[Rfam]
RNA sequence: CAGUGAUUUCAGCUCUUUUAGUAUUUGUCCAGCAGGCUUUCUGCAGUUAGCGGAGAGCCACC
Numbered sequence: 001c002a003g004u005g006a007u008u009u010c011a012g013c014u015c016u017u018u019u020a021g022u023a024u025u026u027g028u029c030c031a032g033c034a035g036g037c038u039u040u041c042u043g044c045a046g047u048u049a050g051c052g053g054a055g056a057g058c059c060a061c062c
Stems, first nucleotide, its partner, number of pairs: 035059010
The record is a 62-nucleotide RNA sequence from Anolis carolinensis, which matches "U7 small nuclear RNA" in Rfam. Rfam's curators write: Animal histone pre-mRNAs are spliced by a different mechanism than nuclear pre-mRNAs and self-splicing introns. This processing involves the U7 snRNP, which contains only one RNA species: U7.